Background: The family of this 158-nucleotide RNA from Erwinia tracheiphila is "STAXI RNA".
RNA sequence: CGUUGUCAUCACGACAACUGCCAAUGUUCCGGUGAUUUGAGAGGAGCGCCUUCGGGUAAUCACAUGCCAAUGCCAUCGUAACCUGAGAGAUGGCGCUUUCGGGCGGUUUUAAAUCUGUUAACCUUUGAAAACAGAGACCCAUGCGGGUUAAGGUCCUU
Numbered sequence: 001c002g003u004u005g006u007c008a009u010c011a012c013g014a015c016a017a018c019u020g021c022c023a024a025u026g027u028u029c030c031g032g033u034g035a036u037u038u039g040a041g042a043g044g045a046g047c048g049c050c051u052u053c054g055g056g057u058a059a060u061c062a063c064a065u066g067c068c069a070a071u072g073c074c075a076u077c078g079u080a081a082c083c084u085g086a087g088a089g090a091u092g093g094c095g096c097u098u099u100c101g102g103g104c105g106g107u108u109u110u111a112a113a114u115c116u117g118u119u120a121a122c123c124u125u126u127g128a129a130a131a132c133a134g135a136g137a138c139c140c141a142u143g144c145g146g147g148u149u150a151a152g153g154u155c156c157u158u
Base pairs, nucleotide, nucleotide: 002018003017004016005015006014007013026047027046028045029044030043032063033062034061035060036059037058048057049056050055072094073093074092075091076090078110080108081107082106083105095104096103097102114135115134116133117132118131121154122153123152124151125150139147
Dot-bracket structure: .((((((.....)))))).......[[[[[.((((((.....]]]]](((....)))))))))........(((((.[.[[[[......)))))(((....)))]]]].]...(((((..[[[[[.....)))))...(.......)..]]]]]....

The family's consensus secondary structure is taken from published work.